This 120-nucleotide RNA sequence from Trichobilharzia regenti belongs to the Rfam family "U5 spliceosomal RNA". On this family, see Hinz et al., J Biol Chem 1996: "Domain analysis of human U5 RNA. Cap trimethylation, protein binding, and spliceosome assembly". U5 RNA is a component of both types of known spliceosome.
RNA sequence: GUUAUAUGGUGUCUCCUCAUUUGCGGAUAAAUCUUUCACCUUUUACUAAAGAUCUCCAUAGGUAGGCACAAUACAAUGAGUCCUGUCUAAUUUUUUUCAGCUCUGUCUUCGAACGGAGUA
Numbered sequence: 001g002u003u004a005u006a007u008g009g010u011g012u013c014u015c016c017u018c019a020u021u022u023g024c025g026g027a028u029a030a031a032u033c034u035u036u037c038a039c040c041u042u043u044u045a046c047u048a049a050a051g052a053u054c055u056c057c058a059u060a061g062g063u064a065g066g067c068a069c070a071a072u073a074c075a076a077u078g079a080g081u082c083c084u085g086u087c088u089a090a091u092u093u094u095u096u097u098c099a100g101c102u103c104u105g106u107c108u109u110c111g112a113a114c115g116g117a118g119u120a
Stems, first nucleotide, its partner, number of pairs: 003080001005078002009069006016062002019059001029055001031053006100119006

Gene Ontology terms of the family: spliceosomal tri-snRNP complex assembly and U5 snRNP.